[Rfam]
Background
Shown here is a 144-nucleotide RNA sequence from Arabidopsis lyrata, a member of the family "MIR840 microRNA precursor family". It is one of the family's seed sequences. Pairs were carried over by alignment from the consensus structure, which was predicted with RNAalifold. Gene Ontology terms of the family: miRNA-mediated post-transcriptional gene silencing and RISC complex. Taxonomically the source falls in Arabidopsis (Eukaryota, Viridiplantae, Streptophyta, Brassicales).

RNA sequence: GUGUGGAAGACACUAAAGGACCUAAACUAACAAAGAGAAACAGCUCAUUGUGCGGGGUAUUACACUCUUAAUGUCUGAAUGCGAUAAUCCGCACGAUGAUCUCUUUAUCUUUGUUUGUUUAGGUCCCUUAGUUUCUUCUAUACC
Numbered sequence: 001g002u003g004u005g006g007a008a009g010a011c012a013c014u015a016a017a018g019g020a021c022c023u024a025a026a027c028u029a030a031c032a033a034a035g036a037g038a039a040a041c042a043g044c045u046c047a048u049u050g051u052g053c054g055g056g057g058u059a060u061u062a063c064a065c066u067c068u069u070a071a072u073g074u075c076u077g078a079a080u081g082c083g084a085u086a087a088u089c090c091g092c093a094c095g096a097u098g099a100u101c102u103c104u105u106u107a108u109c110u111u112u113g114u115u116u117g118u119u120u121a122g123g124u125c126c127c128u129u130a131g132u133u134u135c136u137u138c139u140a141u142a143c144c
Stems, first nucleotide, its partner, number of pairs: 001143010012132005018126010029115008038106003042102002045099012058086004063081002066078002